The family of this 600-nucleotide part of an RNA from Sediminitomix flava is "Bacterial small subunit ribosomal RNA". Its Rfam clan is "SSU clan". Its family is annotated with structural constituent of ribosome and ribosome in the Gene Ontology. For this family Rfam cites "Crystal structure of the ribosome at 5.5 A resolution" (Yusupov et al., Science, 2001). The base pairs follow the family's consensus structure, which is taken from published work.
RNA sequence: UGACGGGGGUCCGCACAAGCGGUGGAGCAUGUGGUUUAAUUCGAUGAUACGCGAGGAACCUUACCUGGGCUCGAAUUCAUGUCGACGGCUUUAGAGAUAGAGCUUUCUUCGGACGAUAUGGAAGGUGCUGCAUGGCUGUCGUCAGCUCGUGCCGUGAGGUGUUGGGUUAAGUCCCGCAACGAGCGCAACCCCUACUGUUAGUUGCCAUCAGGUUAUGCUGGGCACUCUAGCGGAACUGCCUGCGCAAGCAGAGAGGAAGGCGGGGACGACGUCAAGUCAUCAUGGCCCUUACGCCCAGGGCAACACACGUGCUACAAUGGUAAGGACAAAGAGCAGCCAGCUGGUAACAGUGCGCGAAUCUCAAAAACCUUAUCUCAGUUCGGAUUGUGGUCUGCAACUCGACCAUAUGAAGCUGGAAUCGCUAGUAAUCGUAUAUCAGCUAUGAUACGGUGAAUACGUUCCCGGACCUUGUACACACCGCCCGUCAAGCCAUGGGAGUUGGGUGGGCCUGAAGACGGUGGCCGUUAAGGAGCUGUCAAGGGCAAAACCAGCGACUGGGGCUAAGUCGUAACAAGGUAGCCGUACCGGAAGGUGUGGCUG
Numbered sequence: 001u002g003a004c005g006g007g008g009g010u011c012c013g014c015a016c017a018a019g020c021g022g023u024g025g026a027g028c029a030u031g032u033g034g035u036u037u038a039a040u041u042c043g044a045u046g047a048u049a050c051g052c053g054a055g056g057a058a059c060c061u062u063a064c065c066u067g068g069g070c071u072c073g074a075a076u077u078c079a080u081g082u083c084g085a086c087g088g089c090u091u092u093a094g095a096g097a098u099a100g101a102g103c104u105u106u107c108u109u110c111g112g113a114c115g116a117u118a119u120g121g122a123a124g125g126u127g128c129u130g131c132a133u134g135g136c137u138g139u140c141g142u143c144a145g146c147u148c149g150u151g152c153c154g155u156g157a158g159g160u161g162u163u164g165g166g167u168u169a170a171g172u173c174c175c176g177c178a179a180c181g182a183g184c185g186c187a188a189c190c191c192c193u194a195c196u197g198u199u200a201g202u203u204g205c206c207a208u209c210a211g212g213u214u215a216u217g218c219u220g221g222g223c224a225c226u227c228u229a230g231c232g233g234a235a236c237u238g239c240c241u242g243c244g245c246a247a248g249c250a251g252a253g254a255g256g257a258a259g260g261c262g263g264g265g266a267c268g269a270c271g272u273c274a275a276g277u278c279a280u281c282a283u284g285g286c287c288c289u290u291a292c293g294c295c296c297a298g299g300g301c302a303a304c305a306c307a308c309g310u311g312c313u314a315c316a317a318u319g320g321u322a323a324g325g326a327c328a329a330a331g332a333g334c335a336g337c338c339a340g341c342u343g344g345u346a347a348c349a350g351u352g353c354g355c356g357a358a359u360c361u362c363a364a365a366a367a368c369c370u371u372a373u374c375u376c377a378g379u380u381c382g383g384a385u386u387g388u389g390g391u392c393u394g395c396a397a398c399u400c401g402a403c404c405a406u407a408u409g410a411a412g413c414u415g416g417a418a419u420c421g422c423u424a425g426u427a428a429u430c431g432u433a434u435a436u437c438a439g440c441u442a443u444g445a446u447a448c449g450g451u452g453a454a455u456a457c458g459u460u461c462c463c464g465g466a467c468c469u470u471g472u473a474c475a476c477a478c479c480g481c482c483c484g485u486c487a488a489g490c491c492a493u494g495g496g497a498g499u500u501g502g503g504u505g506g507g508c509c510u511g512a513a514g515a516c517g518g519u520g521g522c523c524g525u526u527a528a529g530g531a532g533c534u535g536u537c538a539a540g541g542g543c544a545a546a547a548c549c550a551g552c553g554a555c556u557g558g559g560g561c562u563a564a565g566u567c568g569u570a571a572c573a574a575g576g577u578a579g580c581c582g583u584a585c586c587g588g589a590a591g592g593u594g595u596g597g598c599u600g
Stems, first nucleotide, its partner, number of pairs: 001475002003472003007469007015459002019422005024315001026313008034304002040055004064299007076122003080118005087104007106113002124288002127286004133282002135277003138273001140271002145184006151160003163176004190265004195233007205222002209220003236256002239253001240251004319374007331362003336355002341350003381412001386407007428451007478575001480572001483568002488562004493557003498552005504546001507543003514537006522530002577600010
Dot-bracket structure: (((((.(((((((.((..((((((.((((((((((....((((........))))........(((((((.....(((.(((((..(((((((....))))))).((....))))))).))).((.((((..((((((.((...(((((((((....)))..((((......))))..)))))).....((((.(((((((...((..(((......)))))....)))))))..((.(((((....)))).).)).....))))....)).).)))...))))))))....)))))))...)).)))))))).)...(((((((.....(((..((...(((....)))...))....))).....)))))))......(....(((((((........)))))))....).....))))).....(((((((..........)))))))......))...)))))))))).))..(.(..((...((((.(((..(((((.(..(((....((((((..((.....)).))))))...)))..).)))))..))).))))....))...)..).((((((((((....))))))))))